RNA sequence: GGCAGGUGAUGUGCAUUUUCACGAUGGUCUUCAGAUGCCCAACUAGGGCACUGCUGAGAAACCACUUGGUAAAACUGAUGCCAGAAA
Numbered sequence: 001g002g003c004a005g006g007u008g009a010u011g012u013g014c015a016u017u018u019u020c021a022c023g024a025u026g027g028u029c030u031u032c033a034g035a036u037g038c039c040c041a042a043c044u045a046g047g048g049c050a051c052u053g054c055u056g057a058g059a060a061a062c063c064a065c066u067u068g069g070u071a072a073a074a075c076u077g078a079u080g081c082c083a084g085a086a087a
Base pairs, nucleotide, nucleotide: 001082002081003080004079
Record summary: A member of the RNA family "Small nucleolar RNA SNORD35" from Otolemur garnettii, 87 nucleotides long. Its family is annotated with RNA processing and nucleolus in the Gene Ontology. It scores 82 bits against the family's covariance model. About the family: U35 is a C/D box snoRNA located in intron 6 of ribosomal protein L13A and intron 3 of ribosomal protein S11 in humans and at homologous positions in mouse and chicken ribosomal protein genes. The base pairs follow the family's consensus structure, which was predicted with PFOLD. NCBI's taxonomy places the organism under Eukaryota, Bilateria, Sarcopterygii, Amniota, Otolemur. Rfam 15.1 lists 1,842 matches to the family in 634 species.